[Rfam]
RNA sequence: GCUGGGCUUGGUAACGCAAGCUUGUCACCUAAGUGGGGGCUUCAGGGUCAUGGAACAUGGGCUUGGGUUCAUUUGAUCGGGCUUGUUGAGAUUGAAAUCUGGCCCGCCCGUUCCAAGCUGAGAGCUGGGUCACGUGGGCCGGGCGAAGGCCCGGGCUUCAUUGACCUCUACAGUGGAGGGGAUUGCGUGAGGCUGGCUUCACAGAGCAACGAAAACCUCCCGCUCCCAGCAGUGGAAGGAUAACGGGCCGUUGCUUUACAGGUCCGUCAUGGCCCAAUGAGCCAAUCCCACAUGAACUAUCACCUUU
Numbered sequence: 001g002c003u004g005g006g007c008u009u010g011g012u013a014a015c016g017c018a019a020g021c022u023u024g025u026c027a028c029c030u031a032a033g034u035g036g037g038g039g040c041u042u043c044a045g046g047g048u049c050a051u052g053g054a055a056c057a058u059g060g061g062c063u064u065g066g067g068u069u070c071a072u073u074u075g076a077u078c079g080g081g082c083u084u085g086u087u088g089a090g091a092u093u094g095a096a097a098u099c100u101g102g103c104c105c106g107c108c109c110g111u112u113c114c115a116a117g118c119u120g121a122g123a124g125c126u127g128g129g130u131c132a133c134g135u136g137g138g139c140c141g142g143g144c145g146a147a148g149g150c151c152c153g154g155g156c157u158u159c160a161u162u163g164a165c166c167u168c169u170a171c172a173g174u175g176g177a178g179g180g181g182a183u184u185g186c187g188u189g190a191g192g193c194u195g196g197c198u199u200c201a202c203a204g205a206g207c208a209a210c211g212a213a214a215a216c217c218u219c220c221c222g223c224u225c226c227c228a229g230c231a232g233u234g235g236a237a238g239g240a241u242a243a244c245g246g247g248c249c250g251u252u253g254c255u256u257u258a259c260a261g262g263u264c265c266g267u268c269a270u271g272g273c274c275c276a277a278u279g280a281g282c283c284a285a286u287c288c289c290a291c292a293u294g295a296a297c298u299a300u301c302a303c304c305u306u307u
Stems, first nucleotide, its partner, number of pairs: 001040003004023007028037003044306005050300004056294002058290003063285004069280005075274001077272002079265008088257003093253002100250007108239002111237005117230004122225004127167006134159001136157002139154006168173001175220005184213001186211003193204003
This 307-nucleotide RNA sequence from Punica granatum belongs to the Rfam family "Plant signal recognition particle RNA".
The match comes from Rfam's covariance-model search (240 bits).
The organism belongs to Punica, within Eukaryota.
The family's consensus secondary structure is taken from published work.
For this family Rfam cites "Towards the structure of the mammalian signal recognition particle" (Wild et al., Curr Opin Struct Biol, 2002).